Rfam assigns this 237-nucleotide RNA sequence from Enterorhabdus sp. P55 to the family "raiA RNA". A search with the family's covariance model found it, with a score of 144 bits. Lineage of the source: Bacteria > Bacillati > Actinomycetota > Eggerthellales > Enterorhabdus.
RNA sequence: UUCUCUCGGGUCUGUAGUUGCGGGGGGCGGAUGCGCCUCCUCAGUCCAUGGCAGAUGCGGUCGAAAGGAUCCACGUAAGCGGGCUCGUCCCGUGAGCACGGCGUAUCCUAGAGGUAAGCCGCACCGCCCGUUCUACCUUAUCCGCGGCACGAGGCCGCGGCGGGCGAGAGGGCCGUUAGCGCAAGCGAAGGCCCCGGUGCGCGAGUGUGGGGUCGAAGACUAGGUCAGCCGGGGGAA
Numbered sequence: 001u002u003c004u005c006u007c008g009g010g011u012c013u014g015u016a017g018u019u020g021c022g023g024g025g026g027g028c029g030g031a032u033g034c035g036c037c038u039c040c041u042c043a044g045u046c047c048a049u050g051g052c053a054g055a056u057g058c059g060g061u062c063g064a065a066a067g068g069a070u071c072c073a074c075g076u077a078a079g080c081g082g083g084c085u086c087g088u089c090c091c092g093u094g095a096g097c098a099c100g101g102c103g104u105a106u107c108c109u110a111g112a113g114g115u116a117a118g119c120c121g122c123a124c125c126g127c128c129c130g131u132u133c134u135a136c137c138u139u140a141u142c143c144g145c146g147g148c149a150c151g152a153g154g155c156c157g158c159g160g161c162g163g164g165c166g167a168g169a170g171g172g173c174c175g176u177u178a179g180c181g182c183a184a185g186c187g188a189a190g191g192c193c194c195c196g197g198u199g200c201g202c203g204a205g206u207g208u209g210g211g212g213u214c215g216a217a218g219a220c221u222a223g224g225u226c227a228g229c230c231g232g233g234g235g236a237a
Base pairs, nucleotide, nucleotide: 001237002236003235004234005233006232007231008230009229012228013227014226015222016221017220018219019218048208049207050206051061054107055106056105057104058103059102070101071100078093081090082089083088099215120201121200122199123198124197125166126165127164128163129162130161131160132159170194171193172192173191179186180185